[Rfam]
Rfam assigns this 83-nucleotide RNA sequence from Leucobacter insecticola to the family "ZMP/ZTP riboswitch aptamer (pfl RNA motif)".
RNA sequence: GAUGAACGUCGUGACUGGCGUGCAGAUGGUUCACCAUCGGGAAACGACACUCAAGUUUUAGGCCGCUCGCCUGGGUCGCAUAU
Numbered sequence: 001g002a003u004g005a006a007c008g009u010c011g012u013g014a015c016u017g018g019c020g021u022g023c024a025g026a027u028g029g030u031u032c033a034c035c036a037u038c039g040g041g042a043a044a045c046g047a048c049a050c051u052c053a054a055g056u057u058u059u060a061g062g063c064c065g066c067u068c069g070c071c072u073g074g075g076u077c078g079c080a081u082a083u
Base pairs, nucleotide, nucleotide: 003053004052005051008048009047010046011045012044015041016040017071018070019069020068026037027036028035029034061077062076063075064074
Dot-bracket structure: ..(((..(((((..(([[[[.....((((....))))..))..)))))..))).......((((...]]]]..))))......

Lineage of the source: Bacteria > Bacillati > Actinomycetota > Micrococcales > Leucobacter. Pairs were carried over by alignment from the consensus structure, which is taken from published work.